Rfam assigns this 352-nucleotide part of an RNA from Sutterella sp. AM11-39 to the family "Bacterial large subunit ribosomal RNA". A search with the family's covariance model found it, with a score of 2759 bits. The source organism's lineage runs through Bacteria, Pseudomonadati, Betaproteobacteria, Sutterellaceae and Sutterella.
RNA sequence: UGAGAGAACUCGGGAGAAGGAACUCGGCAAAUUGACACCGUAACUUCGGGAUAAGGUGUGCCUUUGUAGCGUGAAGAGAGAAACACUCGGAGCGUGAAGAGGCCUCAGAGAAUCGGUGGCUGCAACUGUUUAUUAAAAACACAGCACUCUGCAAAGACGAAAGUCGACGUAUAGGGUGUGAUGCCUGCCCGGUGCUGGAAGAUUAAGUGAUGGGGUGAGAGCUCCUGAUCGAAGUCCCAGUAAACGGCGGCCGUAACUAUAACGGUCCUAAGGUAGCGAAAUUCCUUGUCGGGUAAGUUCCGACCUGCACGAAUGGCAUAAUGAUGGCCACACUGUCUCCUCCCGAGACUCA
Numbered sequence: 001u002g003a004g005a006g007a008a009c010u011c012g013g014g015a016g017a018a019g020g021a022a023c024u025c026g027g028c029a030a031a032u033u034g035a036c037a038c039c040g041u042a043a044c045u046u047c048g049g050g051a052u053a054a055g056g057u058g059u060g061c062c063u064u065u066g067u068a069g070c071g072u073g074a075a076g077a078g079a080g081a082a083a084c085a086c087u088c089g090g091a092g093c094g095u096g097a098a099g100a101g102g103c104c105u106c107a108g109a110g111a112a113u114c115g116g117u118g119g120c121u122g123c124a125a126c127u128g129u130u131u132a133u134u135a136a137a138a139a140c141a142c143a144g145c146a147c148u149c150u151g152c153a154a155a156g157a158c159g160a161a162a163g164u165c166g167a168c169g170u171a172u173a174g175g176g177u178g179u180g181a182u183g184c185c186u187g188c189c190c191g192g193u194g195c196u197g198g199a200a201g202a203u204u205a206a207g208u209g210a211u212g213g214g215g216u217g218a219g220a221g222c223u224c225c226u227g228a229u230c231g232a233a234g235u236c237c238c239a240g241u242a243a244a245c246g247g248c249g250g251c252c253g254u255a256a257c258u259a260u261a262a263c264g265g266u267c268c269u270a271a272g273g274u275a276g277c278g279a280a281a282u283u284c285c286u287u288g289u290c291g292g293g294u295a296a297g298u299u300c301c302g303a304c305c306u307g308c309a310c311g312a313a314u315g316g317c318a319u320a321a322u323g324a325u326g327g328c329c330a331c332a333c334u335g336u337c338u339c340c341u342c343c344c345g346a347g348a349c350u351c352a
Base pairs, nucleotide, nucleotide: 001352002351003350004349009347010346011345012344013343014342015341016340018338019337020336035059036058037057038056039055044049060103061102062101063100064099065098104108116331117330118329119328120327121326122325123323124322127141128140129139144179145178146177147176148175149174150173151172152169156165157164158163182318183317184316185315187248188247189246192245193244194241195240196239197238198237201236202235203234207230212225213224214223215222216221249267250266251265252264253263254262268272278305288304289303290302291301292300293299